This 98-nucleotide RNA sequence from Psychrilyobacter sp. S5 belongs to the Rfam family "Purine riboswitch aptamer". It scores 57 bits against the family's covariance model. Gene Ontology term of the family: purine nucleobase biosynthetic process. From the family's description: Riboswitches are metabolite binding domains within certain messenger RNAs that serve as precision sensors for their corresponding targets. NCBI's taxonomy places the organism under Bacteria, Fusobacteriota, Fusobacteriales, Fusobacteriaceae, Psychrilyobacter.

[Rfam]
RNA sequence: UUUUAAAAUUUAUAUAAAACUUAUAUAUCCCCAUAAUAUGGUUGGGAGUUUCUAGGGUUUACCACAAAUUAACCACUAUAAGUGAAUUUUAUGCCGCU
Numbered sequence: 001u002u003u004u005a006a007a008a009u010u011u012a013u014a015u016a017a018a019a020c021u022u023a024u025a026u027a028u029c030c031c032c033a034u035a036a037u038a039u040g041g042u043u044g045g046g047a048g049u050u051u052c053u054a055g056g057g058u059u060u061a062c063c064a065c066a067a068a069u070u071a072a073c074c075a076c077u078a079u080a081a082g083u084g085a086a087u088u089u090u091a092u093g094c095c096g097c098u
Stems, first nucleotide, its partner, number of pairs: 019083007030046004056074004061069001